[Rfam]
RNA sequence: GGAGGAUUUGUGGCCCUCCGGCGGCGCCCUGCGUGGGGGAGCCGUCAAACCGCCCUCUGCUGCGUUAGCUGAAGACUGUCGUGGUGAGCGAUGAGGGAGAAGGCGCCCUUGAGGCGUCAGGU
Numbered sequence: 001g002g003a004g005g006a007u008u009u010g011u012g013g014c015c016c017u018c019c020g021g022c023g024g025c026g027c028c029c030u031g032c033g034u035g036g037g038g039g040a041g042c043c044g045u046c047a048a049a050c051c052g053c054c055c056u057c058u059g060c061u062g063c064g065u066u067a068g069c070u071g072a073a074g075a076c077u078g079u080c081g082u083g084g085u086g087a088g089c090g091a092u093g094a095g096g097g098a099g100a101a102g103g104c105g106c107c108c109u110u111g112a113g114g115c116g117u118c119a120g121g122u
Base pairs, nucleotide, nucleotide: 001019002018003017004016005015020046021045022044023043024042025041027039028038029037030036051121053097054096055095056094057093058091059085060084062082063081064080066078067077068076102118103117104116105115106114107113
RNA: Group II catalytic intron D1-D4-2